[Rfam]
RNA sequence: UGGAGUAGGGGAGCACGUGCAAGGAAAGUUUGAAGAGAGAACUUGCACGUGCCCUGCUUCUCCAGC
Numbered sequence: 001u002g003g004a005g006u007a008g009g010g011g012a013g014c015a016c017g018u019g020c021a022a023g024g025a026a027a028g029u030u031u032g033a034a035g036a037g038a039g040a041a042c043u044u045g046c047a048c049g050u051g052c053c054c055u056g057c058u059u060c061u062c063c064a065g066c
Stems, first nucleotide, its partner, number of pairs: 001064005007058002010055002013052011
Shown here is a 66-nucleotide sequence from Salix brachista, a member of the family "MIR164 microRNA precursor family". The family's consensus secondary structure was predicted with RNAalifold. The literature on the family includes a 2002 paper in Genes Dev by Reinhart et al., "MicroRNAs in plants".